Annotation
Small nucleolar RNA SNORD112: a 71-nucleotide sequence from Moschus moschiferus. Pairs were carried over by alignment from the consensus structure, which was predicted with WAR. Lineage of the source: Eukaryota > Metazoa > Bilateria > Sarcopterygii > Moschus. Rfam links the family to the GO terms RNA processing and nucleolus. The literature on the family includes a 2002 paper in Hum Mol Genet by Cavaille et al., "Identification of tandemly-repeated C/D snoRNA genes at the imprinted human 14q32 domain reminiscent of those at the Prader-Willi/Angelman syndrome region".

RNA sequence: CGGACCAAUGAUGAGAGCAUGUCAUGAACAAGGUUUAUGAUUAAUCCAGUUCUGUGCACCUGAGGUCCAAU
Numbered sequence: 001c002g003g004a005c006c007a008a009u010g011a012u013g014a015g016a017g018c019a020u021g022u023c024a025u026g027a028a029c030a031a032g033g034u035u036u037a038u039g040a041u042u043a044a045u046c047c048a049g050u051u052c053u054g055u056g057c058a059c060c061u062g063a064g065g066u067c068c069a070a071u
Stems, first nucleotide, its partner, number of pairs: 002068005